Annotation
Rfam assigns this 134-nucleotide RNA from Mucor saturninus to the family "U4atac minor spliceosomal RNA".

[Rfam]
RNA sequence: UUUGUCCUUUUCAAGGGGAGAUGCUUACUCAAGUGAGGUUACAACUGAUGAGUAAAUGCCGAAAACCCACAAUACAAUUUGUAUAUUUUCGACCAGUGAUUAGUUUAAUUAGUCGCUGGUCAAUUUUUGGAAAG
Numbered sequence: 001u002u003u004g005u006c007c008u009u010u011u012c013a014a015g016g017g018g019a020g021a022u023g024c025u026u027a028c029u030c031a032a033g034u035g036a037g038g039u040u041a042c043a044a045c046u047g048a049u050g051a052g053u054a055a056a057u058g059c060c061g062a063a064a065a066c067c068c069a070c071a072a073u074a075c076a077a078u079u080u081g082u083a084u085a086u087u088u089u090c091g092a093c094c095a096g097u098g099a100u101u102a103g104u105u106u107a108a109u110u111a112g113u114c115g116c117u118g119g120u121c122a123a124u125u126u127u128u129g130g131a132a133a134g
Stems, first nucleotide, its partner, number of pairs: 005019005020060001022058002025055007037046002091121005099113006
Rfam classes the family as a spliceosomal small nuclear RNA. Rfam describes the family as follows. U4atac is an essential component of the minor U12-type spliceosome complex which is required for removal of the rarer class of eukaryotic introns (AT-AC, U12-type). The family's consensus secondary structure is taken from published work. Clan: U4 clan. It scores 56 bits against the family's covariance model. The literature on the family includes a 2005 paper in RNA by Lorkovic et al., "Evolutionary conservation of minor U12-type spliceosome between plants and humans".